[Rfam]
RNA sequence: CCCGCGGUUAGACGGAAAGACCCCGUGCACCUUUACUACAGCUUCACAUUGGCAUUAGGCCGAACAUGUGCAGGAUAGGUGGUGGGCUUUGAAACGUGAACGCCAGUUUGCGUGGAGCCUCCCUUGAGAUACCACCCUUGUUCUGCUUGAUGUCUAACCGCGGUCCGUUAUCCGGAUCCGGGACCCUGUGUGGCGGGUAGUUUGACUGGGGCGGUCGCCUCCUAAAUCGUAACGGAGGCGCGCGAAGGUUGGCUCAGAGCGGUCGGAAAUCGCUCGUUGAGUGCAAUGGCAGAAGCCAGCCUGACUGCGAGACUGACAAGUCGAGCAGAGUCGAAAGACGGCCAUAGUGAUCCGGUGGUCCCAAGUGGGAGGGCCAUCGCUCAACGGAUAAAAGGUACGCCGGGGAUAACAGGCUGAUACUGCCCAAGAGUCCAUAUCGACGGCAGUGUUUGGCACCUCGAUGUCGGCUCAUCUCAUCCUGGGGCUGGAGCAGGUCCCAAGGGUACGGCUGUUCGCCGUUUAAAGAGGUACGUGAGCUGGGUUUAGAACGUCGUGAGACAGUUCGGUCCCUAUCUUCCGUGGGUGUA
Number, nucleotide and partner (000 for none) at each position: 001c583002c582003c581004g580005c579006g578007g577008u000009u000010a575011g574012a573013c000014g570015g569016a000017a000018a000019g000020a000021c000022c404023c403024c402025g401026u000027g400028c399029a396030c395031c394032u393033u392034u000035a201036c200037u199038a198039c000040a000041g000042c193043u192044u000045c190046a189047c188048a187049u000050u000051g154052g153053c152054a151055u150056u149057a148058g147059g146060c145061c000062g143063a142064a141065c140066a139067u000068g137069u000070g000071c000072a000073g000074g000075a000076u000077a000078g136079g135080u134081g133082g132083u000084g000085g119086g118087c117088u000089u000090u000091g000092a000093a000094a113095c112096g111097u110098g109099a108100a107101c106102g000103c000104c000105a000106g101107u100108u099109u098110g097111c096112g095113u094114g000115g000116a000117g087118c086119c085120u000121c000122c000123c000124u000125u000126g000127a000128g000129a000130u000131a000132c082133c081134a080135c079136c078137c068138u000139u066140g065141u064142u063143c062144u000145g060146c059147u058148u057149g056150a055151u054152g053153u052154c051155u000156a000157a000158c181159c180160g179161c000162g178163g177164u176165c175166c174167g173168u000169u000170a000171u000172c000173c167174g166175g165176a164177u163178c162179c160180g159181g158182g000183a000184c000185c000186c000187u048188g047189u046190g045191u000192g043193g042194c000195g000196g000197g000198u038199a037200g036201u035202u000203u000204g216205a215206c214207u213208g000209g000210g000211g000212c000213g207214g206215u205216c204217g239218c238219c237220u236221c235222c234223u000224a000225a000226a000227u000228c000229g000230u000231a000232a000233c000234g222235g221236a220237g219238g218239c217240g385241c000242g342243c341244g000245a000246a000247g000248g300249u299250u298251g297252g296253c295254u280255c279256a000257g275258a274259g273260c272261g271262g270263u000264c000265g000266g000267a000268a000269a000270u262271c261272g260273c259274u258275c257276g000277u000278u000279g255280a254281g290282u289283g000284c000285a000286a000287u000288g000289g282290c281291a000292g000293a000294a000295g253296c252297c251298a250299g249300c248301c000302u000303g000304a000305c328306u327307g326308c325309g000310a000311g322312a321313c320314u000315g000316a000317c000318a000319a000320g313321u312322c311323g000324a000325g308326c307327a306328g305329a000330g339331u338332c337333g000334a000335a000336a000337g332338a331339c330340g000341g243342c242343c000344a000345u000346a000347g000348u000349g000350a000351u000352c000353c379354g378355g377356u376357g375358g374359u373360c000361c372362c371363a000364a000365g000366u000367g000368g000369g000370a000371g362372g361373g359374c358375c357376a356377u355378c354379g353380c000381u000382c000383a000384a000385c240386g000387g000388a000389u000390a000391a000392a033393a032394g031395g030396u029397a000398c000399g028400c027401c025402g024403g023404g022405g000406a000407u000408a000409a000410c000411a000412g000413g454414c453415u452416g000417a451418u448419a447420c446421u445422g444423c443424c442425c000426a000427a000428g438429a437430g000431u000432c000433c000434a000435u000436a000437u429438c428439g000440a000441c000442g424443g423444c422445a421446g420447u419448g418449u000450u000451u417452g415453g414454c413455a000456c000457c000458u000459c000460g000461a000462u000463g000464u000465c540466g538467g537468c536469u535470c532471a529472u528473c527474u526475c525476a000477u000478c503479c502480u000481g498482g497483g496484g495485c494486u493487g000488g000489a000490g000491c000492a000493g486494g485495u484496c483497c482498c481499a000500a000501g000502g479503g478504u000505a519506c518507g517508g516509c515510u000511g000512u000513u000514c000515g509516c508517c507518g506519u505520u000521u000522a000523a000524a000525g475526a474527g473528g472529u471530a000531c000532g470533u000534g000535a469536g468537c467538u466539g000540g465541g000542u000543u000544u000545a000546g564547a563548a562549c561550g559551u558552c557553g000554u000555g000556a000557g552558a551559c550560a000561g549562u548563u547564c546565g000566g000567u000568c000569c015570c014571u000572a000573u012574c011575u010576u000577c007578c006579g005580u004581g003582g002583g001584u000585g000586u000587a000
Background
Shown here is a 587-nucleotide part of an RNA from Sulfitobacter mediterraneus, a member of the family "Bacterial large subunit ribosomal RNA". The source organism's lineage runs through Bacteria, Pseudomonadati, Pseudomonadota, Alphaproteobacteria and Sulfitobacter. The match comes from Rfam's covariance-model search (2648 bits).